Source information: The record is a 57-nucleotide RNA from Sphingobium fluviale, which matches "terC RNA" in Rfam.
[Rfam]
RNA sequence: CAUGCGGGCCGGGCCCCUCUGACGAUCCGAGGAUGAUCGUGAUGUCGGACCGCAUCG
Numbered sequence: 001c002a003u004g005c006g007g008g009c010c011g012g013g014c015c016c017c018u019c020u021g022a023c024g025a026u027c028c029g030a031g032g033a034u035g036a037u038c039g040u041g042a043u044g045u046c047g048g049a050c051c052g053c054a055u056c057g
Base pairs, nucleotide, nucleotide: 006051007050009048010047011046012045022040023039024038025037026036027035
The family's consensus secondary structure is taken from published work. The family's RNA type in Rfam is cis-regulatory element. A search with the family's covariance model found it, with a score of 59 bits.